[Rfam]
RNA sequence: AUCCAAGUGCACGGGCGUUUUCCUUCUCCGUGAAGCGAUAAGCUGAGGGAGGAAUUUUGCUAGUUGAAAACUACAACAGGACCGCUCCUUAUUGGGUUCGCCCGGUGAGGGGAUUUUUUGACAAAUCGCAUGACU
Numbered sequence: 001a002u003c004c005a006a007g008u009g010c011a012c013g014g015g016c017g018u019u020u021u022c023c024u025u026c027u028c029c030g031u032g033a034a035g036c037g038a039u040a041a042g043c044u045g046a047g048g049g050a051g052g053a054a055u056u057u058u059g060c061u062a063g064u065u066g067a068a069a070a071c072u073a074c075a076a077c078a079g080g081a082c083c084g085c086u087c088c089u090u091a092u093u094g095g096g097u098u099c100g101c102c103c104g105g106u107g108a109g110g111g112g113a114u115u116u117u118u119u120g121a122c123a124a125a126u127c128g129c130a131u132g133a134c135u
Stems, first nucleotide, its partner, number of pairs: 020054005026049003034044003086111011124135001126133002